[Rfam]
Nucleotides: 061
Base pairs, nucleotide, nucleotide: 034058035057037055038054039053040052042051043050044049
Number, partner (000 for none) and nucleotide at each position: 001000g002000a003000g004000u005000g006000c007000u008000a009000c010000a011000g012000c013000u014000c015000u016000c017000u018000u019000a020000a021000a022000a023000u024000u025000u026000g027000u028000c029000u030000a031000g032000c033000a034058a035057g036000u037055u038054u039053c040052c041000c042051a043050g044049u045000u046000u047000u048000c049044a050043c051042u052040g053039g054038a055037a056000c057035c058034u059000c060000c061000g

U7 small nuclear RNA: a 61-nucleotide sequence from Homo sapiens. Rfam describes the family as follows. Animal histone pre-mRNAs are spliced by a different mechanism than nuclear pre-mRNAs and self-splicing introns. This processing involves the U7 snRNP, which contains only one RNA species: U7. The 5' end of U7 RNA is thought to base-pair to a conserved spacer element downstream of the cleavage site in histone pre-mRNA. This family contains a number of annotated U7 pseudogenes. The literature on the family includes a 2007 paper in Genomics Proteomics Bioinformatics by Marz et al., "U7 snRNAs: a computational survey".